[Rfam]
RNA sequence: AAAGGAGCAAUCGCCAAUUUCUUGUUCUAUCAAGAGGGUUGGCAUUGCUCCUAAAAUA
Number, nucleotide and partner (000 for none) at each position: 001a000002a000003a052004g051005g050006a049007g048008c047009a046010a045011u044012c000013g000014c041015c000016a000017a000018u000019u036020u035021c034022u033023u032024g031025u000026u000027c000028u000029a000030u000031c024032a023033a022034g021035a020036g019037g000038g000039u000040u000041g014042g000043c000044a011045u010046u009047g008048c007049u006050c005051c004052u003053a000054a000055a000056a000057u000058a000
The record is a 58-nucleotide RNA sequence from Populus trichocarpa, which matches "Plastid-psbA-3 3UTR RNA" in Rfam. Plastid psbA-3 is a non-coding RNA (ncRNA) present in plastids. Its Rfam clan is "Plastid-psbA 3UTR RNA clan". Taxonomically the source falls in Populus (Eukaryota, Embryophyta, Euphyllophyta, Pentapetalae). Rfam classes the family as a cis-regulatory element.